[Rfam]
RNA sequence: CUGUGGUGAGGUAGUAAGUUGUGUUGUUGGAUGGGAUCAGGAUUGUGUAUCCCAUACAGGAGAUAACUAUACAACUUACUUCCUUCCUCAU
Numbered sequence: 001c002u003g004u005g006g007u008g009a010g011g012u013a014g015u016a017a018g019u020u021g022u023g024u025u026g027u028u029g030g031a032u033g034g035g036a037u038c039a040g041g042a043u044u045g046u047g048u049a050u051c052c053c054a055u056a057c058a059g060g061a062g063a064u065a066a067c068u069a070u071a072c073a074a075c076u077u078a079c080u081u082c083c084u085u086c087c088u089c090a091u
Stems, first nucleotide, its partner, number of pairs: 002090002005087002008085004013080012026067002033052003055062001

The family of this 91-nucleotide RNA sequence from Poecilia formosa is "let-7 microRNA precursor family". It scores 60 bits against the family's covariance model. Clan: let-7 microRNA precursor clan. This family represents the microRNAs (miRNA) let-7 and mir-98. let-7 was identified from a study of developmental timing in C. elegans, and was later shown to be part of a much larger class of non-coding RNAs termed miRNAs. The family's consensus secondary structure was predicted with RNAalifold. On this family, see Rougvie, Nat Rev Genet 2001: "Control of developmental timing in animals".